[Rfam]
RNA sequence: GUUGAAGUUCCAUCCACAAAUGGCUAAGACUUAGGUCUUAGUGUAUGCUAGUCUUAGUGUAUAUGAGUCGUUGAAGUUGCAGGAGUAAUACCCCCAUUCUUGUUCUCUCAAGAGGCCGGGGAUUGCUCCUGCGUU
Numbered sequence: 001g002u003u004g005a006a007g008u009u010c011c012a013u014c015c016a017c018a019a020a021u022g023g024c025u026a027a028g029a030c031u032u033a034g035g036u037c038u039u040a041g042u043g044u045a046u047g048c049u050a051g052u053c054u055u056a057g058u059g060u061a062u063a064u065g066a067g068u069c070g071u072u073g074a075a076g077u078u079g080c081a082g083g084a085g086u087a088a089u090a091c092c093c094c095c096a097u098u099c100u101u102g103u104u105c106u107c108u109c110a111a112g113a114g115g116c117c118g119g120g121g122a123u124u125g126c127u128c129c130u131g132c133g134u135u
Stems, first nucleotide, its partner, number of pairs: 010023004079132011091120001093118001097114005
Plastid-psbA-1 3UTR RNA: a 135-nucleotide RNA from Anemone raddeana. Plastid psbA-1 is a non-coding RNA (ncRNA) present in plastids. It was identified in inverted repeat sequences in the 3 prime untranslate region (3UTR) of photosystem II quinone-binding protein (psbA). It is one of the family's seed sequences. The source organism's lineage runs through Eukaryota, Ranunculales, Ranunculoideae, Anemoneae and Anemone. It is annotated as a cis-regulatory element. Its Rfam clan is "Plastid-psbA 3UTR RNA clan". A reference for the family is Richter et al. (2023), "Retrograde signaling in plants: A critical review focusing on the GUN pathway and beyond", Plant Commun.